[Rfam]
RNA sequence: GGUUUACGCGAGGAGGCAGACAUGGGACUUACUCAAUCCUUGAAUGUCCUUUUGGUCAGUGCUGCGUUCGUGUUCGUUGUGACAAUGCUUUUCAUCUGAGCAGCGAACCUCCUAACUGAAAUGCCUAGACUCCUGGAAAACACUACUUCAACCCAUUCAUAAAAAAGCGCAUCCCUCUUCAGGGAUGCGCUUU
Number, nucleotide and partner (000 for none) at each position: 001g000002g000003u000004u000005u000006a000007c000008g000009c000010g000011a000012g000013g000014a000015g048016g047017c046018a045019g000020a000021c000022a000023u000024g040025g039026g038027a037028c000029u000030u000031a000032c000033u000034c000035a000036a000037u027038c026039c025040u024041u000042g000043a000044a000045u018046g017047u016048c015049c000050u000051u000052u000053u000054g000055g000056u000057c000058a000059g000060u000061g000062c000063u000064g000065c000066g000067u000068u000069c000070g000071u000072g000073u000074u000075c000076g000077u000078u000079g000080u000081g000082a000083c000084a000085a000086u000087g000088c000089u000090u000091u000092u000093c000094a000095u000096c000097u000098g000099a000100g000101c000102a000103g000104c000105g000106a000107a000108c000109c000110u000111c000112c000113u000114a000115a000116c000117u000118g000119a000120a000121a000122u000123g000124c000125c000126u000127a000128g000129a000130c000131u000132c000133c000134u000135g000136g000137a000138a000139a000140a000141c000142a000143c000144u000145a000146c000147u000148u000149c000150a000151a000152c000153c000154c000155a000156u000157u000158c000159a000160u000161a000162a000163a000164a193165a192166a191167g190168c189169g188170c187171a186172u185173c184174c183175c182176u181177c000178u000179u000180c000181a176182g175183g174184g173185a172186u171187g170188c169189g168190c167191u166192u165193u164

Description:
Shown here is a 193-nucleotide RNA from Rhizobium sp. BK251, a member of the family "Rhizobiales sRNA Atu_C9". By type it is a small RNA. Pairs were carried over by alignment from the consensus structure, which was predicted with WAR. The source organism's lineage runs through Bacteria, Pseudomonadota, Hyphomicrobiales, Rhizobiaceae and Rhizobium.